RNA: Small nucleolar RNA Z159/U59
Organism: Elaeis guineensis
RNA sequence: GUCUCCGAUGAUGAUCAAAAGAAUAACUUUCGUUCUUCCGAGAGUGGUGGUGAUGAUCGCCAUCCGUGCGGAAAAGUUUAUGGAGACCUGAACUGAGGAGAC
Numbered sequence: 001g002u003c004u005c006c007g008a009u010g011a012u013g014a015u016c017a018a019a020a021g022a023a024u025a026a027c028u029u030u031c032g033u034u035c036u037u038c039c040g041a042g043a044g045u046g047g048u049g050g051u052g053a054u055g056a057u058c059g060c061c062a063u064c065c066g067u068g069c070g071g072a073a074a075a076g077u078u079u080a081u082g083g084a085g086a087c088c089u090g091a092a093c094u095g096a097g098g099a100g101a102c
Stems, first nucleotide, its partner, number of pairs: 003100004